[Rfam]
RNA sequence: AGCUAAACGGGAUUGCAGUGGAAAUCCUUUAUCCCUUUUUUGGGGAUAAAGAUUGUAACAAAAAGCCCGACUAGCC
Numbered sequence: 001a002g003c004u005a006a007a008c009g010g011g012a013u014u015g016c017a018g019u020g021g022a023a024a025u026c027c028u029u030u031a032u033c034c035c036u037u038u039u040u041u042g043g044g045g046a047u048a049a050a051g052a053u054u055g056u057a058a059c060a061a062a063a064a065g066c067c068c069g070a071c072u073a074g075c076c
Stems, first nucleotide, its partner, number of pairs: 009068003013064002018059002023054004029049008

The family of this 76-nucleotide RNA from Pedobacter cryophilus is "Flavo-1 RNA".
The source organism's lineage runs through Bacteria, Bacteroidota, Sphingobacteriia, Sphingobacteriales and Pedobacter.